[Rfam]
RNA sequence: GAGUGUAUAGGCGUGGCGAGCCGAAAGGCGCAGCGAAAGCGAGAGCACGCAGCAUUGCGAGGUGCGGGGUAUGAAAAUGCCCAAGUCACGUUUAUACGACCCGAAGCCAUUGUGAACUACGCGCGCCCAAGACGAAGCUAGGUUAACGCCUGGUGGAGGUCUGCAACCUGUCAUGGCAUGCCCUGUUGGGUGAGGCGCGGGUAGCGGCGAUAUACCUUUCGAACAUGGCAAUAGCGGGUC
Dot-bracket structure: ....(((((((((((((..(((....)))...((....))....((((...((...))...))))..((((......))))...)))))))))))))..((.(...(((.(((...((((.(((((((.((((...(((((((....)))))))....))))....((.(.((.((.....))))).))..).)))))).)))).((.......))......))))))......).))..
Numbered sequence: 001g002a003g004u005g006u007a008u009a010g011g012c013g014u015g016g017c018g019a020g021c022c023g024a025a026a027g028g029c030g031c032a033g034c035g036a037a038a039g040c041g042a043g044a045g046c047a048c049g050c051a052g053c054a055u056u057g058c059g060a061g062g063u064g065c066g067g068g069g070u071a072u073g074a075a076a077a078u079g080c081c082c083a084a085g086u087c088a089c090g091u092u093u094a095u096a097c098g099a100c101c102c103g104a105a106g107c108c109a110u111u112g113u114g115a116a117c118u119a120c121g122c123g124c125g126c127c128c129a130a131g132a133c134g135a136a137g138c139u140a141g142g143u144u145a146a147c148g149c150c151u152g153g154u155g156g157a158g159g160u161c162u163g164c165a166a167c168c169u170g171u172c173a174u175g176g177c178a179u180g181c182c183c184u185g186u187u188g189g190g191u192g193a194g195g196c197g198c199g200g201g202u203a204g205c206g207g208c209g210a211u212a213u214a215c216c217u218u219u220c221g222a223a224c225a226u227g228g229c230a231a232u233a234g235c236g237g238g239u240c
Stems, first nucleotide, its partner, number of pairs: 005097013020029003033040002045065004052058002068081004100238002103235001107228003111225003117204004122199006128192001130162004137154007167189002170186001172185002175183002206216002

Annotation
Shown here is a 240-nucleotide part of an RNA from Candidatus Micrarchaeum acidiphilum, a member of the family "Archaeal large subunit ribosomal RNA". Clan: LSU clan. Pairs were carried over by alignment from the consensus structure, which is taken from published work. The sequence is in the family's curated seed alignment. NCBI's taxonomy places the organism under Archaea, Nanobdellati, Microcaldota, Candidatus Micrarchaeales, Candidatus Micrarchaeum acidiphilum. Rfam 15.1 lists 2,955 matches to the family in 1,139 species.